[Rfam]
Nucleotides: 120
Stems, first nucleotide, its partner, number of pairs: 001120007013041001015040003021031003025088001027086002042080004047076002049073004084112001089109008
Number, partner (000 for none) and nucleotide at each position: 001120c002119u003118c004117u005116u006115a007114u008000g009000a010000a011000g012000a013041g014000c015040g016039g017038c018000g019000g020000a021031g022030g023029g024000a025088c026000u027086g028085g029023c030022c031021c032000g033000a034000u035000g036000a037000a038017g039016c040015c041013c042080g043079g044078c045077a046000a047076c048075c049073a050072u051071u052070c053000c054000a055000g056000u057000u058000a059000a060000a061000u062000u063000u064000a065000a066000c067000u068000g069000a070052g071051a072050a073049u074000a075048g076047g077045u078044g079043c080042u081000a082000a083000u084112u085028c086027c087000u088025g089109c090108a091107a092106a093105a094104u095103a096102c097000a098000a099000u100000a101000u102096g103095u104094a105093u106092u107091u108090u109089g110000g111000a112084a113000a114007a115006u116005a117004a118003g119002a120001g